[Rfam]
RNA sequence: UUUCAUGAGCUUCAGUGGUCUGGAGUGCAGGCUUCAAACCUGUAGCUGACUUAUGUCAGAGUGGUUCAAUUCCACCUUUUGAGC
Numbered sequence: 001u002u003u004c005a006u007g008a009g010c011u012u013c014a015g016u017g018g019u020c021u022g023g024a025g026u027g028c029a030g031g032c033u034u035c036a037a038a039c040c041u042g043u044a045g046c047u048g049a050c051u052u053a054u055g056u057c058a059g060a061g062u063g064g065u066u067c068a069a070u071u072c073c074a075c076c077u078u079u080u081g082a083g084c
Stems, first nucleotide, its partner, number of pairs: 001082002005078001007076001010025006026044006046059005061075004
RNA: Selenocysteine transfer RNA
Organism: Octopus sinensis